The family of this 180-nucleotide sequence from Catagonus wagneri is "Small nucleolar RNA SNORA23". From the family's description: The members of this family belong to the H/ACA class of snoRNAs which are thought to guide the sites of modification of uridines to pseudouridines. This family includes human snoRNA ACA23 (SNORA23) and mouse snoMBI-1. ACA23 is predicted to guide the pseudouridylation of residue U3737 and U4331 of 28S rRNA. The match comes from Rfam's covariance-model search (127 bits).
RNA sequence: CUCAUGCUGUGUGCAUGGUUGUCACCUGUGUCUGAUAGCAGUGUCUGUGUUUUGCAUUCAGAUCUUGCUAUGCACACAAACAUCGUGUAGCCAACGAGUAAGCUGGGAUCAUAGUACUGGUCUCGUGUUGUGUCUUUGGACAUACCUUCCCCUUGACAGUCUCCAAAUUCCCACACACGG
Numbered sequence: 001c002u003c004a005u006g007c008u009g010u011g012u013g014c015a016u017g018g019u020u021g022u023c024a025c026c027u028g029u030g031u032c033u034g035a036u037a038g039c040a041g042u043g044u045c046u047g048u049g050u051u052u053u054g055c056a057u058u059c060a061g062a063u064c065u066u067g068c069u070a071u072g073c074a075c076a077c078a079a080a081c082a083u084c085g086u087g088u089a090g091c092c093a094a095c096g097a098g099u100a101a102g103c104u105g106g107g108a109u110c111a112u113a114g115u116a117c118u119g120g121u122c123u124c125g126u127g128u129u130g131u132g133u134c135u136u137u138g139g140a141c142a143u144a145c146c147u148u149c150c151c152c153u154u155g156a157c158a159g160u161c162u163c164c165a166a167a168u169u170c171c172c173a174c175a176c177a178c179g180g
Base pairs, nucleotide, nucleotide: 013088014087015086016085029078030077031076033074034073036070037069038068039067040066041065043063044062045061046056047055048054104173105172106171107170108169117159118158119157121155125152127150129144130143131142132141133140134139
Background
Rfam links the family to the GO terms RNA processing and nucleolus.